[Rfam]
RNA sequence: GCAAAUUUUUAUUAAACACACACAUACAUCGACACGGUUUUCGGGGUGUCCGCCAGGCGGAUCGAGAGCUGGGAUGUAUGGAGGCCUAAC
Numbered sequence: 001g002c003a004a005a006u007u008u009u010u011a012u013u014a015a016a017c018a019c020a021c022a023c024a025u026a027c028a029u030c031g032a033c034a035c036g037g038u039u040u041u042c043g044g045g046g047u048g049u050c051c052g053c054c055a056g057g058c059g060g061a062u063c064g065a066g067a068g069c070u071g072g073g074a075u076g077u078a079u080g081g082a083g084g085c086c087u088a089a090c
Stems, first nucleotide, its partner, number of pairs: 023080008035071009048062005
t44 RNA: a 90-nucleotide RNA from Bowmanella dokdonensis. This family consists of a number of bacterial RNA genes of between 135 and 170 bases in length. Rfam classes the family as a small RNA. Taxonomically the source falls in Bowmanella (Bacteria, Pseudomonadati, Pseudomonadota, Alteromonadaceae).